[Rfam]
The family of this 102-nucleotide sequence from Bacillus sp. FJAT-27986 is "SAM riboswitch aptamer (S box leader)". For this family Rfam cites "The S box regulon: a new global transcription termination control system for methionine and cysteine biosynthesis genes in gram-positive bacteria" (Grundy and Henkin, Mol Microbiol, 1998). The organism belongs to Bacillus, within Bacteria. A search with the family's covariance model found it, with a score of 94 bits. The base pairs follow the family's consensus structure, which is taken from published work. Clan: SAM clan.
RNA sequence: UUCUUAUCUAGAGAGAUGGAGGGACUGGCCCGUUGAAAUCUCAGCAACCUGGAUGGUAAUCCAAGGUGCUAAAUCCAGCAAGCAAUGCUUGAGAGAUGAGAG
Numbered sequence: 001u002u003c004u005u006a007u008c009u010a011g012a013g014a015g016a017u018g019g020a021g022g023g024a025c026u027g028g029c030c031c032g033u034u035g036a037a038a039u040c041u042c043a044g045c046a047a048c049c050u051g052g053a054u055g056g057u058a059a060u061c062c063a064a065g066g067u068g069c070u071a072a073a074u075c076c077a078g079c080a081a082g083c084a085a086u087g088c089u090u091g092a093g094a095g096a097u098g099a100g101a102g
Stems, first nucleotide, its partner, number of pairs: 001102008013042005021031003025078004043070004048066002050063004074094001079091005